[Rfam]
RNA: SAM riboswitch aptamer (S box leader)
Organism: Bacillus sp. FJAT-49736
RNA sequence: CUCUUAUCGAGAGCGGCGGAGGGACUAGGCCCAAUGAUGCCCGGCAACCAUCAAACAACUCAGGUUUGAUAAGGUGCUAAUUCCUACAGAUCUAUGUGAUCUGAAAGAUAAGGG
Numbered sequence: 001c002u003c004u005u006a007u008c009g010a011g012a013g014c015g016g017c018g019g020a021g022g023g024a025c026u027a028g029g030c031c032c033a034a035u036g037a038u039g040c041c042c043g044g045c046a047a048c049c050a051u052c053a054a055a056c057a058a059c060u061c062a063g064g065u066u067u068g069a070u071a072a073g074g075u076g077c078u079a080a081u082u083c084c085u086a087c088a089g090a091u092c093u094a095u096g097u098g099a100u101c102u103g104a105a106a107g108a109u110a111a112g113g114g
Base pairs, nucleotide, nucleotide: 001114002113003112004111005110006109007108008107013042015041016040017039021032022031023030026086027085028084029083043078044077045076046075048074049073050070051069052068053067054066055065056064082106087103088102089101090100091099092098